[Rfam]
RNA sequence: GUUGAGGGGAGUGUUGUCUGAUUCGAGGCCCUUCCUCUCUCUCUCUUUGUGAGGUCAUGAAUGGCCUCGGACCAGGCUUCAUUCCCCCCAAC
Numbered sequence: 001g002u003u004g005a006g007g008g009g010a011g012u013g014u015u016g017u018c019u020g021a022u023u024c025g026a027g028g029c030c031c032u033u034c035c036u037c038u039c040u041c042u043c044u045c046u047u048u049g050u051g052a053g054g055u056c057a058u059g060a061a062u063g064g065c066c067u068c069g070g071a072c073c074a075g076g077c078u079u080c081a082u083u084c085c086c087c088c089c090a091a092c
Base pairs, nucleotide, nucleotide: 001092002091003090004089006087007086008085009084010083011082012081013080016077017076018075019074020073024069025068026067
A member of the RNA family "mir-166 microRNA precursor family" from Carex littledalei, 92 nucleotides long. The family has 31 seed sequences and 2,599 matches in Rfam 15.1. Rfam links the family to the GO terms RISC complex and miRNA-mediated post-transcriptional gene silencing. A reference for the family is Reinhart et al. (2002), "MicroRNAs in plants", Genes Dev. From the family's description: This family represents the plant microRNA (miRNA) precursor mir-166.